This 101-nucleotide RNA sequence from Romboutsia weinsteinii belongs to the Rfam family "Purine riboswitch aptamer".
[Rfam]
RNA sequence: AUACAAUUAAGAUAAGACAUUCAUAUAUCAUGGUAAUAUGGUCCAUCAGUCUCUACGAACUCGCCGUAAAUGAGUUUGCUAUGAAUAGUUACGAAUACUUU
Numbered sequence: 001a002u003a004c005a006a007u008u009a010a011g012a013u014a015a016g017a018c019a020u021u022c023a024u025a026u027a028u029c030a031u032g033g034u035a036a037u038a039u040g041g042u043c044c045a046u047c048a049g050u051c052u053c054u055a056c057g058a059a060c061u062c063g064c065c066g067u068a069a070a071u072g073a074g075u076u077u078g079c080u081a082u083g084a085a086u087a088g089u090u091a092c093g094a095a096u097a098c099u100u101u
Base pairs, nucleotide, nucleotide: 019086020085021084022083023082024081025080028048030046031045032044033043057077058076059075060074061073062072063071

A search with the family's covariance model found it, with a score of 69 bits. Lineage of the source: Bacteria > Clostridia > Peptostreptococcales > Peptostreptococcaceae > Romboutsia.